RNA sequence: GGGGAGGGCGAUACCUGGGCUGUCCUGAGCAGUGGCCUGUCCGUCACUAACCCUCCCCAGAGCAAUCCCUGCUUUGCUUUGACUGGGGCGACGUGAGGGAAAUCGCCACAGACAGAUACGGAGCAGACACCU
Numbered sequence: 001g002g003g004g005a006g007g008g009c010g011a012u013a014c015c016u017g018g019g020c021u022g023u024c025c026u027g028a029g030c031a032g033u034g035g036c037c038u039g040u041c042c043g044u045c046a047c048u049a050a051c052c053c054u055c056c057c058c059a060g061a062g063c064a065a066u067c068c069c070u071g072c073u074u075u076g077c078u079u080u081g082a083c084u085g086g087g088g089c090g091a092c093g094u095g096a097g098g099g100a101a102a103u104c105g106c107c108a109c110a111g112a113c114a115g116a117u118a119c120g121g122a123g124c125a126g127a128c129a130c131c132u
Stems, first nucleotide, its partner, number of pairs: 002057006016043003022037001024035002069126007083111003088106004
The record is a 132-nucleotide sequence from Anguilla anguilla, which matches "Small Cajal body specific RNA 8" in Rfam.
Pairs were carried over by alignment from the consensus structure, which is taken from published work.
NCBI's taxonomy places the organism under Eukaryota, Deuterostomia, Vertebrata, Teleostomi, Anguilla.
The match comes from Rfam's covariance-model search (103 bits).
Rfam classes the family as a small Cajal body RNA.